This 85-nucleotide RNA from Methanoregula boonei belongs to the Rfam family "tRNA".
By type it is a transfer RNA.
From the family's description: Transfer RNA (tRNA) molecules are approximately 80 nucleotides in length.
Lineage of the source: Archaea > Methanobacteriati > Methanomicrobia > Methanoregula > Methanoregula boonei.
A search with the family's covariance model found it, with a score of 49 bits.
[Rfam]
RNA sequence: GCGAGGGUAGCCAAGCCAGGUCAAAGGCGCUAGGUUGAGGGCCUAGUCUCGUAGGAGUUCUUGGGUUCGAAUCCCAUCCCUCGCA
Numbered sequence: 001g002c003g004a005g006g007g008u009a010g011c012c013a014a015g016c017c018a019g020g021u022c023a024a025a026g027g028c029g030c031u032a033g034g035u036u037g038a039g040g041g042c043c044u045a046g047u048c049u050c051g052u053a054g055g056a057g058u059u060c061u062u063g064g065g066u067u068c069g070a071a072u073c074c075c076a077u078c079c080c081u082c083g084c085a
Stems, first nucleotide, its partner, number of pairs: 001084007010028003030046005062076004